[Rfam]
Notes
A member of the RNA family "L17 ribosomal protein downstream element" from Floricoccus tropicus, 106 nucleotides long. NCBI's taxonomy places the organism under Bacteria, Bacillota, Bacilli, Streptococcaceae, Floricoccus. Rfam classes the family as a cis-regulatory element. A search with the family's covariance model found it, with a score of 57 bits.
RNA sequence: UGAGUGUUAUGAUGGUGGUAUAGGUGAAGAGAAUAUAUCUUUUCUAACGAAAGUUGGCCUGUACUUAGUCUAGCUCUGGCUUUCCGGGGUAGGUUACCUACUCCGG
Numbered sequence: 001u002g003a004g005u006g007u008u009a010u011g012a013u014g015g016u017g018g019u020a021u022a023g024g025u026g027a028a029g030a031g032a033a034u035a036u037a038u039c040u041u042u043u044c045u046a047a048c049g050a051a052a053g054u055u056g057g058c059c060u061g062u063a064c065u066u067a068g069u070c071u072a073g074c075u076c077u078g079g080c081u082u083u084c085c086g087g088g089g090u091a092g093g094u095u096a097c098c099u100a101c102u103c104c105g106g
Base pairs, nucleotide, nucleotide: 002076003075004074005073011070012069013068017065018064019063020062021061022060023059024058025057084106085105086104087103088102089101090100091099092098